[Rfam]
RNA sequence: CUGUUUUUAACGCAGCAUGAUCGACGCGCGGACAGUUUCAUCCGAUGCGGAGCUCGCCACGCCGGCAGCGAGCACCAUGCAGAUGCAUUCUGCCCGGCCUCGACGAGAGGUCGACGGGACCUAUAACAGUCAAC
Numbered sequence: 001c002u003g004u005u006u007u008u009a010a011c012g013c014a015g016c017a018u019g020a021u022c023g024a025c026g027c028g029c030g031g032a033c034a035g036u037u038u039c040a041u042c043c044g045a046u047g048c049g050g051a052g053c054u055c056g057c058c059a060c061g062c063c064g065g066c067a068g069c070g071a072g073c074a075c076c077a078u079g080c081a082g083a084u085g086c087a088u089u090c091u092g093c094c095c096g097g098c099c100u101c102g103a104c105g106a107g108a109g110g111u112c113g114a115c116g117g118g119a120c121c122u123a124u125a126a127c128a129g130u131c132a133a134c
Stems, first nucleotide, its partner, number of pairs: 011049004016044001052073006079093005096112006